[Rfam]
This 54-nucleotide RNA belongs to the Rfam family "Editing element of GABA-3 exon 9". Rfam's curators put it in the seed alignment. For this family Rfam cites "Editing modifies the GABA(A) receptor subunit alpha3" (Ohlson et al., RNA, 2007). The base pairs follow the family's consensus structure, which is taken from published work. Rfam classes the family as a cis-regulatory element.
RNA sequence: AAGGUCUCCUAUGCCACCGCCAUGGACUGGUUCAUCGCCGUCUGCUUCGCAUUU
Numbered sequence: 001a002a003g004g005u006c007u008c009c010u011a012u013g014c015c016a017c018c019g020c021c022a023u024g025g026a027c028u029g030g031u032u033c034a035u036c037g038c039c040g041u042c043u044g045c046u047u048c049g050c051a052u053u054u
Base pairs, nucleotide, nucleotide: 001054002053003052008049011046013045014044016041017040019038020037022035023034024033025032026031